[Rfam]
Notes: Rfam assigns this 276-nucleotide RNA sequence from Sciurus vulgaris to the family "Mason-Pfizer monkey virus packaging signal". Rfam classes the family as a cis-regulatory element. A search with the family's covariance model found it, with a score of 157 bits. A reference for the family is Mustafa et al. (2004), "Mutational analysis of the predicted secondary RNA structure of the Mason-Pfizer monkey virus packaging signal", Virus Res.

RNA sequence: UGGUGCCCAACGUGGGGCACAGAUACAGGGGAAUUUGUGAGGGCAAAGGCGUCUAAUCCUUCUGCCGAACAAAGCAGAAGUCAGUUCAAGAAAGAUCGCCACCGGAGCCUGCCAUGCCGCUCUUAAAGGUACAGUAACGCCUAAUUAUGGGACAAGAAUCAAGUAAGCAUAAAGUUUUUGUUAAGCAAUUAAAAGAAGCUUUAAAGACACGGGGAGUAAAGGUUAAGAGUAAUUAUCUUUUUAAGUUUUUUGACCUUAUUAAGGAUACCUGUCCGU
Numbered sequence: 001u002g003g004u005g006c007c008c009a010a011c012g013u014g015g016g017g018c019a020c021a022g023a024u025a026c027a028g029g030g031g032a033a034u035u036u037g038u039g040a041g042g043g044c045a046a047a048g049g050c051g052u053c054u055a056a057u058c059c060u061u062c063u064g065c066c067g068a069a070c071a072a073a074g075c076a077g078a079a080g081u082c083a084g085u086u087c088a089a090g091a092a093a094g095a096u097c098g099c100c101a102c103c104g105g106a107g108c109c110u111g112c113c114a115u116g117c118c119g120c121u122c123u124u125a126a127a128g129g130u131a132c133a134g135u136a137a138c139g140c141c142u143a144a145u146u147a148u149g150g151g152a153c154a155a156g157a158a159u160c161a162a163g164u165a166a167g168c169a170u171a172a173a174g175u176u177u178u179u180g181u182u183a184a185g186c187a188a189u190u191a192a193a194a195g196a197a198g199c200u201u202u203a204a205a206g207a208c209a210c211g212g213g214g215a216g217u218a219a220a221g222g223u224u225a226a227g228a229g230u231a232a233u234u235a236u237c238u239u240u241u242u243a244a245g246u247u248u249u250u251u252g253a254c255c256u257u258a259u260u261a262a263g264g265a266u267a268c269c270u271g272u273c274c275g276u
Stems, first nucleotide, its partner, number of pairs: 006031003012026003036048001038046001086129002095121001097119001100116002104112001135155001140151004161202002163199002210252008220238004225233001261276001263274004